This 140-nucleotide RNA from Musca domestica belongs to the Rfam family "Small nucleolar RNA psi28S-1192". About the family: psi28S-1192 is a member of the H/ACA class of snoRNA. This family is responsible for guiding the modification of uridine 1192 to pseudouridine in Drosophila 28S rRNA. It is annotated as an H/ACA-box small nucleolar RNA. The organism belongs to Musca, within Eukaryota. Rfam links the family to the GO terms nucleolus and RNA processing. Pairs were carried over by alignment from the consensus structure, which was predicted with ILM.

RNA sequence: AAAUUGUCCUCUCUAAUACUAUAUUAUAUCCCUAUUUGAUAUAUAUAGUCUCGCUUGUGGACUAUAUAAAUGGUUUAAUUAUCCUAGCUUUUGAAGUAGCGAUGCAUUUCAUUAAGCUCGAGAAACGUUAAGCAACAUUU
Numbered sequence: 001a002a003a004u005u006g007u008c009c010u011c012u013c014u015a016a017u018a019c020u021a022u023a024u025u026a027u028a029u030c031c032c033u034a035u036u037u038g039a040u041a042u043a044u045a046u047a048g049u050c051u052c053g054c055u056u057g058u059g060g061a062c063u064a065u066a067u068a069a070a071u072g073g074u075u076u077a078a079u080u081a082u083c084c085u086a087g088c089u090u091u092u093g094a095a096g097u098a099g100c101g102a103u104g105c106a107u108u109u110c111a112u113u114a115a116g117c118u119c120g121a122g123a124a125a126c127g128u129u130a131a132g133c134a135a136c137a138u139u140u
Stems, first nucleotide, its partner, number of pairs: 006062004019048006025041002027038002073133007084122002087119001